The family of this 78-nucleotide sequence is "L13-Bacteroidia ribosomal protein leader".
By type it is a cis-regulatory leader.
[Rfam]
RNA sequence: GAGGAUAACGCUUAGAUUCCUCGCAGCUCUUUCGUGUUAAUAGUGGUAUUCAUGGCCGGAUAUCAUGGUUAGUGAAUC
Numbered sequence: 001g002a003g004g005a006u007a008a009c010g011c012u013u014a015g016a017u018u019c020c021u022c023g024c025a026g027c028u029c030u031u032u033c034g035u036g037u038u039a040a041u042a043g044u045g046g047u048a049u050u051c052a053u054g055g056c057c058g059g060a061u062a063u064c065a066u067g068g069u070u071a072g073u074g075a076a077u078c
Base pairs, nucleotide, nucleotide: 001022002021003020004019005018037072038071039070040069041068043066044065045064046063047062048061049060050059051058
Dot-bracket structure: (((((............)))))..............(((((.(((((((((......))))))))).)))))......